[Rfam]
RNA sequence: UCGCCGUUCGAAGAAUCGUUGUCGCAGCUACCCGUACAGAAAGCUCACCUCGUGUGGUGCUCUCUUUCAUUCCGCUGUGGGGAAAGUCCUCGGAGAUGCAGAGCUUCCUUUUUGGAUUCCUCGUUCCUACUAAUGGAAAGCAACCGACCGUUAAGCAAGGCGGUAUAGGUUCGAAGAAUGGCUGGAAUUCCUUGCUUUCCUCUUGCUCGAUAAAAUUCGAGUAAGUGGGCUUGCUCAUCCAAGCCGGCUCUGUCCCGCCUACAUCCUUGAUCCUCUGCAAGGAACACGUUGCGAAGAUAUGAGCGGCGUUCUCGCUAUGUCCUUCGAGGUCGAAGUGGGUGAAGUGUAGGUGGAUGUUGCUCAUAGAGAUAGUUAUGCGAUUGUUGGUUCCCUUUGUGGAUCUUCAACUCAAUGAGGCUCACUCUCUUUCGGCG
Numbered sequence: 001u002c003g004c005c006g007u008u009c010g011a012a013g014a015a016u017c018g019u020u021g022u023c024g025c026a027g028c029u030a031c032c033c034g035u036a037c038a039g040a041a042a043g044c045u046c047a048c049c050u051c052g053u054g055u056g057g058u059g060c061u062c063u064c065u066u067u068c069a070u071u072c073c074g075c076u077g078u079g080g081g082g083a084a085a086g087u088c089c090u091c092g093g094a095g096a097u098g099c100a101g102a103g104c105u106u107c108c109u110u111u112u113u114g115g116a117u118u119c120c121u122c123g124u125u126c127c128u129a130c131u132a133a134u135g136g137a138a139a140g141c142a143a144c145c146g147a148c149c150g151u152u153a154a155g156c157a158a159g160g161c162g163g164u165a166u167a168g169g170u171u172c173g174a175a176g177a178a179u180g181g182c183u184g185g186a187a188u189u190c191c192u193u194g195c196u197u198u199c200c201u202c203u204u205g206c207u208c209g210a211u212a213a214a215a216u217u218c219g220a221g222u223a224a225g226u227g228g229g230c231u232u233g234c235u236c237a238u239c240c241a242a243g244c245c246g247g248c249u250c251u252g253u254c255c256c257g258c259c260u261a262c263a264u265c266c267u268u269g270a271u272c273c274u275c276u277g278c279a280a281g282g283a284a285c286a287c288g289u290u291g292c293g294a295a296g297a298u299a300u301g302a303g304c305g306g307c308g309u310u311c312u313c314g315c316u317a318u319g320u321c322c323u324u325c326g327a328g329g330u331c332g333a334a335g336u337g338g339g340u341g342a343a344g345u346g347u348a349g350g351u352g353g354a355u356g357u358u359g360c361u362c363a364u365a366g367a368g369a370u371a372g373u374u375a376u377g378c379g380a381u382u383g384u385u386g387g388u389u390c391c392c393u394u395u396g397u398g399g400a401u402c403u404u405c406a407a408c409u410c411a412a413u414g415a416g417g418c419u420c421a422c423u424c425u426c427u428u429u430c431g432g433c434g
Stems, first nucleotide, its partner, number of pairs: 002434005010426002014382006022080007039064002042061003085419002088417004253353002258350006267343002270340001275338004319331001321329002386402004
RNA: RNase MRP
Organism: Lentinula aciculospora